Shown here is a 368-nucleotide RNA from Sphingobacterium sp. CZ-2, a member of the family "transfer-messenger RNA". Its Rfam clan is "tRNA clan". The source organism's lineage runs through Bacteria, Pseudomonadati, Bacteroidota, Sphingobacteriaceae and Sphingobacterium.
RNA sequence: GGGGUCGACCGGAAUUGACAGGAUAGCGAUGGUUAUGUAAGCAUGCAGUGCAUUGUUAGUCUAGCACUUAAAUCUGAACUUUCAACUUUAUAACUGGCGAAGAAAACUACGCCUUAGCUGCUUAAGUUAGACUUAACAUAGCUAUUUGUCCCGUUAGAUCCUGUUCUUUGGUCUAACAACAGGGGCAUCGAACGAUAGAACUGGUCAUUGGGACGCUGCUAAACAGUGACGAGAUACAGCAGAUACGGAGAACGGUAUAGGUAAGCGACUCACCUUCCCUCUCCCGACAAUUAAAGAGAAGCUAAGCAUGUAGAAAGCGUAAAUCAUACUAUGUUUGGACGAGGGUUCGAAUCCCUCCGGCUCCACAA
Numbered sequence: 001g002g003g004g005u006c007g008a009c010c011g012g013a014a015u016u017g018a019c020a021g022g023a024u025a026g027c028g029a030u031g032g033u034u035a036u037g038u039a040a041g042c043a044u045g046c047a048g049u050g051c052a053u054u055g056u057u058a059g060u061c062u063a064g065c066a067c068u069u070a071a072a073u074c075u076g077a078a079c080u081u082u083c084a085a086c087u088u089u090a091u092a093a094c095u096g097g098c099g100a101a102g103a104a105a106a107c108u109a110c111g112c113c114u115u116a117g118c119u120g121c122u123u124a125a126g127u128u129a130g131a132c133u134u135a136a137c138a139u140a141g142c143u144a145u146u147u148g149u150c151c152c153g154u155u156a157g158a159u160c161c162u163g164u165u166c167u168u169u170g171g172u173c174u175a176a177c178a179a180c181a182g183g184g185g186c187a188u189c190g191a192a193c194g195a196u197a198g199a200a201c202u203g204g205u206c207a208u209u210g211g212g213a214c215g216c217u218g219c220u221a222a223a224c225a226g227u228g229a230c231g232a233g234a235u236a237c238a239g240c241a242g243a244u245a246c247g248g249a250g251a252a253c254g255g256u257a258u259a260g261g262u263a264a265g266c267g268a269c270u271c272a273c274c275u276u277c278c279c280u281c282u283c284c285c286g287a288c289a290a291u292u293a294a295a296g297a298g299a300a301g302c303u304a305a306g307c308a309u310g311u312a313g314a315a316a317g318c319g320u321a322a323a324u325c326a327u328a329c330u331a332u333g334u335u336u337g338g339a340c341g342a343g344g345g346u347u348c349g350a351a352u353c354c355c356u357c358c359g360g361c362u363c364c365a366c367a368a
Stems, first nucleotide, its partner, number of pairs: 001364007019337003023332004030326003033322006042310005047068005054084002058080003115144006147187006153177008163201005169195001204230007219242002247284005254277002260274003269298003341357005